This 168-nucleotide RNA from Cottoperca gobio belongs to the Rfam family "Small nucleolar RNA SNORA23".
From the family's description: The members of this family belong to the H/ACA class of snoRNAs which are thought to guide the sites of modification of uridines to pseudouridines. This family includes human snoRNA ACA23 (SNORA23) and mouse snoMBI-1. ACA23 is predicted to guide the pseudouridylation of residue U3737 and U4331 of 28S rRNA.
Rfam classes the family as an H/ACA-box small nucleolar RNA.
A reference for the family is Huttenhofer et al. (2001), "RNomics: an experimental approach that identifies 201 candidates for novel, small, non-messenger RNAs in mouse", EMBO J.
The organism belongs to Cottoperca, within Eukaryota.

RNA sequence: GGUGAACGGUGUGUACGGUGUUGAUCUGUGUUAUGUGCUGUUGCUUGACUGCGUUUUGCAGGCUGGGCAGCAGUGCUCACUCCACACCUGCAGCCAUAGAGCAACAGGAGAUCAUAGUACUGGUCCUUGACUUUUCCCAUUGACCAGCCUCCAAAUUCUCCAACAUGC
Numbered sequence: 001g002g003u004g005a006a007c008g009g010u011g012u013g014u015a016c017g018g019u020g021u022u023g024a025u026c027u028g029u030g031u032u033a034u035g036u037g038c039u040g041u042u043g044c045u046u047g048a049c050u051g052c053g054u055u056u057u058g059c060a061g062g063c064u065g066g067g068c069a070g071c072a073g074u075g076c077u078c079a080c081u082c083c084a085c086a087c088c089u090g091c092a093g094c095c096a097u098a099g100a101g102c103a104a105c106a107g108g109a110g111a112u113c114a115u116a117g118u119a120c121u122g123g124u125c126c127u128u129g130a131c132u133u134u135u136c137c138c139a140u141u142g143a144c145c146a147g148c149c150u151c152c153a154a155a156u157u158c159u160c161c162a163a164c165a166u167g168c
Stems, first nucleotide, its partner, number of pairs: 013091003030080002035077001036075006043068002045065001047063001050060003107161005120147006128139002